[Rfam]
RNA sequence: UCCAGCCCACUGUUCGGAUUUUGUAAUAAUGAGUAAGAUUAAACAUUCUCUAAAUUAAGACCAUACAUGUGUCUCCAAACCUAGUCCUUUCCCAAGGUUUGGAUUAUAAGUACUGGUGAUAAAC
Dot-bracket structure: .........((((((..(((.......))))))).))......................((((...........((((((((.(........).))))))))...........)))).......
RNA: Small nucleolar RNA SNORA72